[Rfam]
MIR5269 microRNA precursor family: a 79-nucleotide sequence from Medicago truncatula. The family's consensus secondary structure was predicted with RNAalifold. The match comes from Rfam's covariance-model search (61 bits). NCBI's taxonomy places the organism under Eukaryota, Streptophytina, fabids, Fabales, Medicago. Its family is annotated with RISC complex and miRNA-mediated post-transcriptional gene silencing in the Gene Ontology.
RNA sequence: UUCGUUUAAAUUAUUGUGAGUCUACACUUUUAAAAUUGAACCCACACAAAAUGGUGGGAUAUACAUUGAUUUCAUCCAA
Dot-bracket structure: ((.(.(.((((((.((((...(((((.(((.................))).)).)))....)))).)))))).).).))